A member of the RNA family "SAM riboswitch aptamer (S box leader)" from Clostridium sulfidigenes, 106 nucleotides long. The source organism's lineage runs through Bacteria, Bacillati, Eubacteriales, Clostridiaceae and Clostridium. It scores 83 bits against the family's covariance model.
RNA sequence: UACUUAUCAAGAGAGGUGGAGGGAUAGGCCCUAUGAAGCCCAGCAACCAAUGUGUUCAUCUACAUAUAUGGUGCUAAAUCCUACAGUAUGAGCUGAAAGAUAAGAA
Numbered sequence: 001u002a003c004u005u006a007u008c009a010a011g012a013g014a015g016g017u018g019g020a021g022g023g024a025u026a027g028g029c030c031c032u033a034u035g036a037a038g039c040c041c042a043g044c045a046a047c048c049a050a051u052g053u054g055u056u057c058a059u060c061u062a063c064a065u066a067u068a069u070g071g072u073g074c075u076a077a078a079u080c081c082u083a084c085a086g087u088a089u090g091a092g093c094u095g096a097a098a099g100a101u102a103a104g105a106a
Stems, first nucleotide, its partner, number of pairs: 001106001003104006013041001015040003021031003025083004042075004047071002050067004079098001084095004